[Rfam]
RNA: mir-103/107 microRNA precursor family
Organism: Tupaia belangeri
Nucleotides: 060
Stems, first nucleotide, its partner, number of pairs: 004054004009049010020039004
Number, partner (000 for none) and nucleotide at each position: 001000a002000g003000c004054u005053u006052c007051u008000u009049u010048a011047c012046a013045g014044u015043g016042c017041u018040g019000c020039c021038u022037u023036g024000u025000a026000g027000c028000a029000u030000u031000c032000g033000g034000g035000u036023c037022a038021a039020g040018c041017a042016g043015c044014a045013u046012u047011g048010u049009a050000c051007a052006g053005g054004g055000c056000u057000a058000u059000g060000a